RNA sequence: AAGCCGUGAUGAAAUAUGUGCUCGCUGUGAUGAUAGGGUCUAUCACUACCGUCAGAUGCUUCAUCAGACGAAAAGGAGUACAUCUGAGCUU
Numbered sequence: 001a002a003g004c005c006g007u008g009a010u011g012a013a014a015u016a017u018g019u020g021c022u023c024g025c026u027g028u029g030a031u032g033a034u035a036g037g038g039u040c041u042a043u044c045a046c047u048a049c050c051g052u053c054a055g056a057u058g059c060u061u062c063a064u065c066a067g068a069c070g071a072a073a074a075g076g077a078g079u080a081c082a083u084c085u086g087a088g089c090u091u
Stems, first nucleotide, its partner, number of pairs: 001091004

A member of the RNA family "small nucleolar RNA snoR114" from Salix koriyanagi, 91 nucleotides long. The literature on the family includes a 2009 paper in Nucleic Acids Res by Chen and Wu, "Mining small RNA sequencing data: a new approach to identify small nucleolar RNAs in Arabidopsis". The family has 24 seed sequences and 1,645 matches in Rfam 15.1. Rfam links the family to the GO terms RNA processing and nucleolus. NCBI's taxonomy places the organism under Eukaryota, Viridiplantae, Streptophytina, Saliceae, Salix. The family's consensus secondary structure was predicted with RNAalifold.